[Rfam]
RNA: Small nucleolar RNA SNORA1
RNA sequence: AACCUCAUUCUGGGUGAGAGCUGACACUGUUGACCAUAGUGUUGAGAAAUUACUAACGGGGGUCAACAGAGGCGCAGGUGUGCUCCAUCACCAUGAACGUGCUGCAGUGGUGACAAGGAGGCCUGUGACUCUG
Numbered sequence: 001a002a003c004c005u006c007a008u009u010c011u012g013g014g015u016g017a018g019a020g021c022u023g024a025c026a027c028u029g030u031u032g033a034c035c036a037u038a039g040u041g042u043u044g045a046g047a048a049a050u051u052a053c054u055a056a057c058g059g060g061g062g063u064c065a066a067c068a069g070a071g072g073c074g075c076a077g078g079u080g081u082g083c084u085c086c087a088u089c090a091c092c093a094u095g096a097a098c099g100u101g102c103u104g105c106a107g108u109g110g111u112g113a114c115a116a117g118g119a120g121g122c123c124u125g126u127g128a129c130u131c132u133g
Stems, first nucleotide, its partner, number of pairs: 003061002006058001008056001022044006074126005086112006